[Rfam]
RNA sequence: UCUGGUGAUGCUGUAGCAGCACGGAAUGGUUUGUGAGUUACACAGAGAUGCAGGCCAUACUGUGCUGCAGCAGCAAAACCAGA
Numbered sequence: 001u002c003u004g005g006u007g008a009u010g011c012u013g014u015a016g017c018a019g020c021a022c023g024g025a026a027u028g029g030u031u032u033g034u035g036a037g038u039u040a041c042a043c044a045g046a047g048a049u050g051c052a053g054g055c056c057a058u059a060c061u062g063u064g065c066u067g068c069a070g071c072a073g074c075a076a077a078a079c080c081a082g083a
Stems, first nucleotide, its partner, number of pairs: 001083006013071002016068009026058010
Dot-bracket structure: ((((((......((.(((((((((.((((((((((.............)))))))))).))))))))).))......))))))
Rfam assigns this 83-nucleotide sequence from Cynoglossus semilaevis to the family "mir-15 microRNA precursor family". Its family is annotated with RISC complex and miRNA-mediated post-transcriptional gene silencing in the Gene Ontology. The family has 164 seed sequences and 2,045 matches in Rfam 15.1. The family's consensus secondary structure was predicted with RNAalifold. Its Rfam clan is "mir-15 clan".